[Rfam]
RNA sequence: CUGUUGUUUAUGAUGGCUUGAUCCUAAAUCCCAGAUGGGUCAAGCUUGAUGUCUUCUCGACAG
Dot-bracket structure: (((((.........((((((((((...(((...)))))))))))))............)))))
RNA: Selenocysteine insertion sequence 1
Organism: Phascolarctos cinereus